mir-146 microRNA precursor family: an 87-nucleotide sequence. The sequence is in the family's curated seed alignment. On this family, see Lagos-Quintana et al., Curr Biol 2002: "Identification of tissue-specific microRNAs from mouse".
RNA sequence: GUGUAUCCUCAGCUUUGAGAACUGAAUUCCAUGGGUUGUGUCAGUGUCAGACCUGUGAAAUUCAGUUCUUCAGCUGGGAUAUCUCUG
Numbered sequence: 001g002u003g004u005a006u007c008c009u010c011a012g013c014u015u016u017g018a019g020a021a022c023u024g025a026a027u028u029c030c031a032u033g034g035g036u037u038g039u040g041u042c043a044g045u046g047u048c049a050g051a052c053c054u055g056u057g058a059a060a061u062u063c064a065g066u067u068c069u070u071c072a073g074c075u076g077g078g079a080u081a082u083c084u085c086u087g
Stems, first nucleotide, its partner, number of pairs: 008078002011075003018069008033054004